[Rfam]
RNA sequence: CGGCUCGGUUUCCUGGGGGGUGGGCCCAGCCUGCCCCACCUCCCCUCAGACGAGCCUAGAGCGCAGAGGCCGGUCUCCCUGCUAGUGGGAGAGGCGGUGAAGACCGCAGCCUCUCCUGGGCUGUCCUGCCUCACAUUC
Numbered sequence: 001c002g003g004c005u006c007g008g009u010u011u012c013c014u015g016g017g018g019g020g021u022g023g024g025c026c027c028a029g030c031c032u033g034c035c036c037c038a039c040c041u042c043c044c045c046u047c048a049g050a051c052g053a054g055c056c057u058a059g060a061g062c063g064c065a066g067a068g069g070c071c072g073g074u075c076u077c078c079c080u081g082c083u084a085g086u087g088g089g090a091g092a093g094g095c096g097g098u099g100a101a102g103a104c105c106g107c108a109g110c111c112u113c114u115c116c117u118g119g120g121c122u123g124u125c126c127u128g129c130c131u132c133a134c135a136u137u138c
Stems, first nucleotide, its partner, number of pairs: 002056006015044010066132005072126002077120003087112003
RNA: Small Cajal body specific RNA 21